RNA: L19-Flavobacteria ribosomal protein leader
Organism: Nycticryphes semicollaris
RNA sequence: AAACCUCUGACAACAUUCUGUGAAUGUUU
Numbered sequence: 001a002a003a004c005c006u007c008u009g010a011c012a013a014c015a016u017u018c019u020g021u022g023a024a025u026g027u028u029u
Stems, first nucleotide, its partner, number of pairs: 001029004008024001010021003